[Rfam]
Nucleotides: 087
Base pairs, nucleotide, nucleotide: 003085005083007081008080009079010078011077013075014074015073016072017071019069020068021067022066023065024064025063026062027061028060029059030058031057032056033055034054035053037051038050039049040048041047
Number, partner (000 for none) and nucleotide at each position: 001000g002000u003085a004000c005083u006000c007081c008080c009079u010078c011077c012000g013075u014074c015073c016072c017071a018000u019069a020068a021067u022066a023065u024064a025063a026062g027061a028060g029059c030058g031057u032056u033055u034054u035053u036000g037051a038050c039049a040048c041047u042000a043000c044000a045000c046000u047041a048040g049039u050038g051037u052000a053035a054034a055033a056032a057031a058030c059029g060028c061027u062026c063025u064024u065023a066022u067021a068020u069019u070000a071017u072016g073015g074014g075013a076000g077011g078010g079009a080008g081007g082000g083005g084000c085003u086000a087000c
The record is an 87-nucleotide RNA from Triticum aestivum, which matches "MIR1120/MIR1122 microRNA precursor family" in Rfam. Rfam 15.1 lists 44,765 matches to the family in 8 species. NCBI's taxonomy places the organism under Eukaryota, Viridiplantae, Streptophyta, Mesangiospermae, Triticum. Pairs were carried over by alignment from the consensus structure, which was predicted with RNAalifold. Its family is annotated with RISC complex and miRNA-mediated post-transcriptional gene silencing in the Gene Ontology.